[Rfam]
RNA sequence: ACCCAUGGUGAUUAUCUUUCCAAAGGGCCAAAAAGUGCCCUUUUCAGGGAAGUAGCAACGUGGAAGAAAAUCUGGUAUCCUGAGGUCACUGAGUGAAAGAUGAUGUUGUUUCAUUUACCUUUCUUUAGAUCCCUACAGGU
Numbered sequence: 001a002c003c004c005a006u007g008g009u010g011a012u013u014a015u016c017u018u019u020c021c022a023a024a025g026g027g028c029c030a031a032a033a034a035g036u037g038c039c040c041u042u043u044u045c046a047g048g049g050a051a052g053u054a055g056c057a058a059c060g061u062g063g064a065a066g067a068a069a070a071u072c073u074g075g076u077a078u079c080c081u082g083a084g085g086u087c088a089c090u091g092a093g094u095g096a097a098a099g100a101u102g103a104u105g106u107u108g109u110u111u112c113a114u115u116u117a118c119c120u121u122u123c124u125u126u127a128g129a130u131c132c133c134u135a136c137a138g139g140u
Stems, first nucleotide, its partner, number of pairs: 003063005009057002019049003022043007074131003078128001082123003093111001095109001
RNA: Small nucleolar RNA SNORA67